The family of this 61-nucleotide sequence from Rhodopila globiformis is "Fluoride riboswitch aptamer (crcB RNA motif)".

[Rfam]
RNA sequence: GGGGCCGAUGGGGAUGGGGUUCCCCGAAACCGCCCGCUGGGCUGAUGACUCCUACCGCGCG
Numbered sequence: 001g002g003g004g005c006c007g008a009u010g011g012g013g014a015u016g017g018g019g020u021u022c023c024c025c026g027a028a029a030c031c032g033c034c035c036g037c038u039g040g041g042c043u044g045a046u047g048a049c050u051c052c053u054a055c056c057g058c059g060c061g
Base pairs, nucleotide, nucleotide: 010025011024012023013022016052017051018050019049020048021047032042033041034040035039
Annotation: Pairs were carried over by alignment from the consensus structure, which is taken from published work.